A member of the RNA family "THF (Tetrahydrofolate) riboswitch aptamer" from Lacticaseibacillus saniviri, 95 nucleotides long. The match comes from Rfam's covariance-model search (74 bits). For this family Rfam cites "A eubacterial riboswitch class that senses the coenzyme tetrahydrofolate" (Ames et al., Chem Biol, 2010). The family's consensus secondary structure is taken from published work.
RNA sequence: AGAGGAGUAGGAAUUAGCGCGUUAAGUGCUGGUGGAACGGAAUGUGAACACCGGACGAAAGCUGCAGCUGCGAUGCUAGUUCCGCAUUCGCCGAU
Numbered sequence: 001a002g003a004g005g006a007g008u009a010g011g012a013a014u015u016a017g018c019g020c021g022u023u024a025a026g027u028g029c030u031g032g033u034g035g036a037a038c039g040g041a042a043u044g045u046g047a048a049c050a051c052c053g054g055a056c057g058a059a060a061g062c063u064g065c066a067g068c069u070g071c072g073a074u075g076c077u078a079g080u081u082c083c084g085c086a087u088u089c090g091c092c093g094a095u
Base pairs, nucleotide, nucleotide: 001095004092005091010083011082012081013080014079015078016077017076018075019074020072021071022070026056027055029054030053031052032051033050034049040089041088042087043086044085060069061068062067